[Rfam]
RNA sequence: GAACACGAUUUAGAAUUGCGGAGUCAAGCAGUGCGUCGAUGACGUGCUAACGCUUGGGGAAAUUCCCCGGACCACAGGGCAGCAAGUGCCGGCCAUAACGGCAGACCACUUCUUUUGGACGUUGCGGAGAUGGCUCUCGGGCCGGAGCAUGUGCUGAAAAAGGAAGUCUGAUCGUCAUACCACAGUUAUGCAAUUGGCCCCUGGCCUCACCGACGUCGUGCGGCGGCUAGCAGGGUUAACCCAACGGGGAUCACUCAUGUCGUGUU
Numbered sequence: 001g002a003a004c005a006c007g008a009u010u011u012a013g014a015a016u017u018g019c020g021g022a023g024u025c026a027a028g029c030a031g032u033g034c035g036u037c038g039a040u041g042a043c044g045u046g047c048u049a050a051c052g053c054u055u056g057g058g059g060a061a062a063u064u065c066c067c068c069g070g071a072c073c074a075c076a077g078g079g080c081a082g083c084a085a086g087u088g089c090c091g092g093c094c095a096u097a098a099c100g101g102c103a104g105a106c107c108a109c110u111u112c113u114u115u116u117g118g119a120c121g122u123u124g125c126g127g128a129g130a131u132g133g134c135u136c137u138c139g140g141g142c143c144g145g146a147g148c149a150u151g152u153g154c155u156g157a158a159a160a161a162g163g164a165a166g167u168c169u170g171a172u173c174g175u176c177a178u179a180c181c182a183c184a185g186u187u188a189u190g191c192a193a194u195u196g197g198c199c200c201c202u203g204g205c206c207u208c209a210c211c212g213a214c215g216u217c218g219u220g221c222g223g224c225g226g227c228u229a230g231c232a233g234g235g236u237u238a239a240c241c242c243a244a245c246g247g248g249g250a251u252c253a254c255u256c257a258u259g260u261c262g263u264g265u266u
Base pairs, nucleotide, nucleotide: 002266003265004264005263006262007261008260009259011257014195015194016193017192018191019190024057025056026055027054028053029052031047032046033045034044035043036042037041062251063250065249066248067247068246078090079089080088081087092102093101094100104168105167106166110164111163112162113161114160115159119155123149124148125147132143133142134141135140197236198235199234200233
This 266-nucleotide RNA sequence from Achlya hypogyna belongs to the Rfam family "RNase MRP". Pairs were carried over by alignment from the consensus structure, which is taken from published work. About the family: RNase MRP is an enzymatically active ribonucleoprotein with two distinct roles in eukaryotes. The organism belongs to Achlya, within Eukaryota. Rfam classes the family as a ribozyme.